Shown here is a 140-nucleotide RNA sequence from Phenylobacterium deserti, a member of the family "Caulobacter sRNA CC3664".
RNA sequence: GUCGGUUGGACAGGCUCGGUAGGCCCCGGAUCCUGAACAGCCCCCCCAGCCCCCCUGGGUCGGUCGAACUGGCCAACCGACACACGAGAUACCCCUCCCCCAAAACGUCAGCCCGCGUGGACUCUCCAGCCGCGCGGGCU
Numbered sequence: 001g002u003c004g005g006u007u008g009g010a011c012a013g014g015c016u017c018g019g020u021a022g023g024c025c026c027c028g029g030a031u032c033c034u035g036a037a038c039a040g041c042c043c044c045c046c047c048a049g050c051c052c053c054c055c056u057g058g059g060u061c062g063g064u065c066g067a068a069c070u071g072g073c074c075a076a077c078c079g080a081c082a083c084a085c086g087a088g089a090u091a092c093c094c095c096u097c098c099c100c101c102a103a104a105a106c107g108u109c110a111g112c113c114c115g116c117g118u119g120g121a122c123u124c125u126c127c128a129g130c131c132g133c134g135c136g137g138g139c140u
Stems, first nucleotide, its partner, number of pairs: 001081009011071003017066004022061004028054002033049003088109003096104001110140011
About this RNA: The base pairs follow the family's consensus structure. The match comes from Rfam's covariance-model search (68 bits).